[Rfam]
RNA sequence: UCACAAGUUCGAGGCCACAGCAGAACCGCUCACAGCACGGCCAUGUCAGAUUCCAGUGGUUCUGCAAAUUCUGCU
Numbered sequence: 001u002c003a004c005a006a007g008u009u010c011g012a013g014g015c016c017a018c019a020g021c022a023g024a025a026c027c028g029c030u031c032a033c034a035g036c037a038c039g040g041c042c043a044u045g046u047c048a049g050a051u052u053c054c055a056g057u058g059g060u061u062c063u064g065c066a067a068a069u070u071c072u073g074c075u
Stems, first nucleotide, its partner, number of pairs: 013042004019075007028036001047064004052059002
Dot-bracket structure: ............[[[[..(((((((..(.......)..]]]]....((((.((....)).))))....)))))))
RNA: Mammalian CPEB3 ribozyme
Organism: Alligator sinensis